[Rfam]
Shown here is a 99-nucleotide sequence from Terriglobus saanensis, a member of the family "SAM riboswitch aptamer (S box leader)". The family's consensus secondary structure is taken from published work. About the family: The SAM riboswitch is found upstream of a number of genes which code for proteins involved in methionine or cysteine biosynthesis in Gram-positive bacteria. It scores 70 bits against the family's covariance model.
RNA sequence: GUUUCAUGAAGAGUGGCUGAGGGACGAGCCCUUUGACGCCACGACAACCGGCCCUCGGGACCGGUGUCACCUCUCUCCUGGUAACAGGGAACAUGAGAU
Numbered sequence: 001g002u003u004u005c006a007u008g009a010a011g012a013g014u015g016g017c018u019g020a021g022g023g024a025c026g027a028g029c030c031c032u033u034u035g036a037c038g039c040c041a042c043g044a045c046a047a048c049c050g051g052c053c054c055u056c057g058g059g060a061c062c063g064g065u066g067u068c069a070c071c072u073c074u075c076u077c078c079u080g081g082u083a084a085c086a087g088g089g090a091a092c093a094u095g096a097g098a099u
Base pairs, nucleotide, nucleotide: 001099002098003097004096005095006094007093008092013042014041015040016039017038021031022030023029026075027074028073043068044067045066046065048064049063052058053057072091077088078087079086080085